[Rfam]
Nucleotides: 098
Base pairs, nucleotide, nucleotide: 007051008050009049011047012046015041016040020038021037022035023032024031025030052071053070054069055068056067057066058065073093075096079091080090081089
Number, partner (000 for none) and nucleotide at each position: 001000g002000a003000a004000a005000a006000u007051g008050c009049u010000g011047u012046c013000u014000a015041g016040g017000g018000u019000u020038c021037c022035g023032g024031u025030u026000g027000a028000a029000a030025a031024a032023c033000g034000u035022c036000u037021g038020g039000u040016c041015c042000g043000a044000g045000a046012g047011a048000g049009a050008g051007c052071g053070u054069a055068c056067a057066g058065c059000u060000u061000a062000c063000a064000c065058g066057c067056u068055g069054u070053a071052u072000a073093c074000a075096c076000g077000g078000a079091g080090g081089g082000a083000a084000a085000a086000a087000a088000g089081c090080c091079c092000g093073g094000g095000a096075g097000a098000a